The family of this 59-nucleotide RNA is "nhaA-I RNA". The base pairs follow the family's consensus structure, which is taken from published work. Acidobacteria, Alphaproteobacteria, Betaproteobacteria and Gammaproteobacteria, Verrucomicrobia, cand. division NC10.
RNA sequence: GGGUGGGGAGGCAUGGUGCCGCCCCCAGGGUUCCCAAUCGGGUGGUCGGGCCGCCAUCC
Number, nucleotide and partner (000 for none) at each position: 001g000002g000003g000004u000005g026006g025007g024008g022009a000010g020011g019012c000013a000014u000015g000016g000017u000018g000019c011020c010021g000022c008023c000024c007025c006026c005027a000028g000029g000030g000031u000032u000033c000034c000035c000036a000037a000038u000039c000040g059041g058042g057043u056044g055045g054046u053047c000048g000049g000050g000051c000052c000053g046054c045055c044056a043057u042058c041059c040
The sequence is in the family's curated seed alignment.